This 82-nucleotide sequence from Tolypothrix sp. NIES-4075 belongs to the Rfam family "Photosynthesis regulatory RNA1". From the family's description: Formerly known as Syr1 discovered in Synechocystis sp PCC 6803, is a regulatory factor controlling photosynthetic functions. Pairs were carried over by alignment from the consensus structure, which was predicted with CMfinder.
[Rfam]
RNA sequence: AAGGUUUUUUGAUUUUGGUAUCGGUAUCUAAUUAACAUUUGGACUUCUCCCAAUCACCUCGGUUGCUUUCGCCGGGGUUUUU
Numbered sequence: 001a002a003g004g005u006u007u008u009u010u011g012a013u014u015u016u017g018g019u020a021u022c023g024g025u026a027u028c029u030a031a032u033u034a035a036c037a038u039u040u041g042g043a044c045u046u047c048u049c050c051c052a053a054u055c056a057c058c059u060c061g062g063u064u065g066c067u068u069u070c071g072c073c074g075g076g077g078u079u080u081u082u
Base pairs, nucleotide, nucleotide: 056078057077058076059075060074061073062072063071
About this RNA
Gene Ontology terms of the family: regulation of photosynthesis and regulation of translation. The literature on the family includes a 2014 paper in Plant Cell by Georg et al., "The small regulatory RNA SyR1/PsrR1 controls photosynthetic functions in cyanobacteria".